[Rfam]
RNA: U5 spliceosomal RNA
Nucleotides: 117
Stems, first nucleotide, its partner, number of pairs: 003079004009067011027053008099115005
Number, partner (000 for none) and nucleotide at each position: 001000u002000u003079c004078c005077g006076c007000u008000g009067a010066g011065u012064u013063a014062a015061u016060u017059u018058c019057a020000u021000u022000c023000g024000u025000a026000u027053u028052a029051a030050u031049c032048u033047u034046u035000c036000g037000c038000c039000u040000u041000u042000u043000a044000c045000u046034a047033a048032a049031g050030a051029u052028u053027a054000c055000c056000g057019u058018g059017g060016a061015a062014u063013u064012g065011a066010c067009u068000c069000a070000c071000a072000a073000a074000a075000u076006g077005c078004g079003g080000c081000u082000u083000c084000g085000a086000c087000c088000a089000a090000a091000u092000u093000u094000c095000u096000g097000g098000a099115c100114c101113c102112c103111u104000c105000c106000u107000u108000g109000u110000g111103a112102g113101g114100g115099g116000a117000a